[Rfam]
RNA sequence: GUGACAGAAGAGAGUGAGCACAGACAGGCAAUUGUAUAGACUAUACCAUUGUUUAUGUGUCUGUGCUCACUCUUCUUUCUGUCAG
Numbered sequence: 001g002u003g004a005c006a007g008a009a010g011a012g013a014g015u016g017a018g019c020a021c022a023g024a025c026a027g028g029c030a031a032u033u034g035u036a037u038a039g040a041c042u043a044u045a046c047c048a049u050u051g052u053u054u055a056u057g058u059g060u061c062u063g064u065g066c067u068c069a070c071u072c073u074u075c076u077u078u079c080u081g082u083c084a085g
Stems, first nucleotide, its partner, number of pairs: 002084008010075003013071009023061003
Annotation: mir-156 microRNA precursor family: an 85-nucleotide RNA sequence from Ipomoea nil. Rfam's curators write: This family represents the plant microRNA (miRNA) precursor mir-156. The base pairs follow the family's consensus structure, which was predicted with PFOLD. On this family, see Ambros, Cell 2001: "microRNAs: tiny regulators with great potential". Rfam 15.1 lists 1,401 matches to the family in 221 species. NCBI's taxonomy places the organism under Eukaryota, Streptophyta, Embryophyta, asterids, Ipomoea.